Background: Shown here is a 48-nucleotide RNA from Neptunicoccus cionae, a member of the family "Pseudoknot of influenza A virus gene".
RNA sequence: UUCCAGGACAUACUGACAAGGAUGUCAAAAAUGCAAUUGAGAUCCUCA
Numbered sequence: 001u002u003c004c005a006g007g008a009c010a011u012a013c014u015g016a017c018a019a020g021g022a023u024g025u026c027a028a029a030a031a032u033g034c035a036a037u038u039g040a041g042a043u044c045c046u047c048a
Stems, first nucleotide, its partner, number of pairs: 002041001004039003019046005
For this family Rfam cites "A family of non-classical pseudoknots in influenza A and B viruses" (Gultyaev and Olsthoorn, RNA Biol, 2010). The source organism's lineage runs through Bacteria, Pseudomonadota, Alphaproteobacteria, Paracoccaceae and Neptunicoccus. The base pairs follow the family's consensus structure, which is taken from published work.